This 79-nucleotide sequence from Betanecrovirus betae belongs to the Rfam family "Necrovirus cap-independent translation element". A reference for the family is Nicholson et al. (2013), "Tombusvirus Y-shaped translational enhancer forms a complex with eIF4F and can be functionally replaced by heterologous translational enhancers", J Virol. The source organism's lineage runs through Viruses, Riboviria, Tolivirales, Procedovirinae and Betanecrovirus betae.
RNA sequence: GAGGUAUCGAUGCUGGAUCCUGGGAAACAGGCUUGACAGGUUUGGGUGGUUCCAAACCGCUGCAUCACUCGAGAUACUC
Numbered sequence: 001g002a003g004g005u006a007u008c009g010a011u012g013c014u015g016g017a018u019c020c021u022g023g024g025a026a027a028c029a030g031g032c033u034u035g036a037c038a039g040g041u042u043u044g045g046g047u048g049g050u051u052c053c054a055a056a057c058c059g060c061u062g063c064a065u066c067a068c069u070c071g072a073g074a075u076a077c078u079c
Stems, first nucleotide, its partner, number of pairs: 001079003004075002007072004012068001014062002019031004039058006